[Rfam]
RNA sequence: CAGUAGGGUGCAAAGUCCCUACAUAGGAAAUUGCUAGUUCACCUAGAAGUCUGACUGGCAUACAUGAUGGCAACAACAUGAUAUGAAGCCCAGUGACAAAGACGAGAAAUCGUUGAGACGCAAUGUAGGCCGUAGCAUUA
Numbered sequence: 001c002a003g004u005a006g007g008g009u010g011c012a013a014a015g016u017c018c019c020u021a022c023a024u025a026g027g028a029a030a031u032u033g034c035u036a037g038u039u040c041a042c043c044u045a046g047a048a049g050u051c052u053g054a055c056u057g058g059c060a061u062a063c064a065u066g067a068u069g070g071c072a073a074c075a076a077c078a079u080g081a082u083a084u085g086a087a088g089c090c091c092a093g094u095g096a097c098a099a100a101g102a103c104g105a106g107a108a109a110u111c112g113u114u115g116a117g118a119c120g121c122a123a124u125g126u127a128g129g130c131c132g133u134a135g136c137a138u139u140a
Stems, first nucleotide, its partner, number of pairs: 024045004054094005059085004063080002068075002101114005118133003